The family of this 117-nucleotide sequence from Brevibacillus laterosporus is "PyrR binding site".
This family represents the PyrR binding site and terminator structure. This RNA structure is found upstream of a variety of genes involved in pyrimidine biosynthesis and transport. The alignment also includes a portion of the antiterminator structure.
A search with the family's covariance model found it, with a score of 57 bits.
The family's consensus secondary structure is taken from published work.
It is annotated as a cis-regulatory element.
[Rfam]
RNA sequence: CGCCUCUUUAAGGCUAAUCCCGUGAGGUUAGCAAGGGGACUCGAUCUAACGCUGGAGGUAUGCGUACCUCUGUGCUUGGACCUGCCUCUUUGUGUACCCACGAAGAGGUUUUUUUGU
Number, nucleotide and partner (000 for none) at each position: 001c000002g000003c038004c037005u036006c035007u034008u033009u000010a000011a000012g000013g000014c031015u030016a029017a028018u027019c026020c000021c000022g000023u000024g000025a000026g019027g018028u017029u016030a015031g014032c000033a008034a007035g006036g005037g004038g003039a000040c000041u000042c000043g000044a000045u000046c000047u078048a077049a076050c000051g000052c000053u072054g071055g070056a069057g068058g067059u066060a065061u000062g000063c000064g000065u060066a059067c058068c057069u056070c055071u054072g053073u000074g000075c000076u049077u048078g047079g000080a000081c000082c000083u000084g109085c108086c107087u106088c105089u104090u103091u102092g101093u100094g099095u000096a000097c000098c000099c094100a093101c092102g091103a090104a089105g088106a087107g086108g085109u084110u000111u000112u000113u000114u000115u000116g000117u000